[Rfam]
glmS glucosamine-6-phosphate activated ribozyme aptamer: a 173-nucleotide sequence from Clostridium paridis. The match comes from Rfam's covariance-model search (98 bits).

RNA sequence: UUUAAUAUUUAAGCGCUAGAGGUUAAAUACAUGAGAUCGGUAUUUAAGUAUUUAACUUGACGAGGUUGGGGAGUAUCGAAAAUUCAGCGGGUGCCCCACGGUAUAAGUACUACCGUUAAAAGCUGGCAAACCUAAGAAGUAAUUCUUAGAACAAAUUCAGCUAGGUACUAGGA
Number, nucleotide and partner (000 for none) at each position: 001u000002u000003u000004a000005a000006u000007a000008u000009u000010u000011a000012a000013g000014c000015g000016c000017u000018a000019g000020a058021g057022g056023u055024u054025a053026a052027a051028u000029a049030c000031a000032u000033g000034a000035g000036a000037u000038c000039g000040g000041u000042a000043u000044u000045u000046a000047a000048g000049u029050a000051u027052u026053u025054a024055a023056c022057u021058u020059g000060a000061c000062g000063a000064g000065g000066u000067u098068g097069g096070g095071g094072a000073g000074u000075a000076u087077c000078g085079a084080a000081a000082a000083u000084u079085c078086a000087g076088c000089g000090g000091g000092u000093g000094c071095c070096c069097c068098a067099c115100g114101g113102u112103a111104u000105a000106a000107g000108u000109a000110c000111u103112a102113c101114c100115g099116u000117u000118a000119a000120a000121a162122g161123c160124u159125g158126g000127c000128a000129a000130a000131c000132c149133u148134a147135a146136g145137a144138a143139g000140u000141a000142a000143u138144u137145c136146u135147u134148a133149g132150a000151a000152c000153a000154a000155a000156u000157u000158c125159a124160g123161c122162u121163a000164g000165g000166u000167a000168c000169u000170a000171g000172g000173a000
The family's RNA type in Rfam is riboswitch.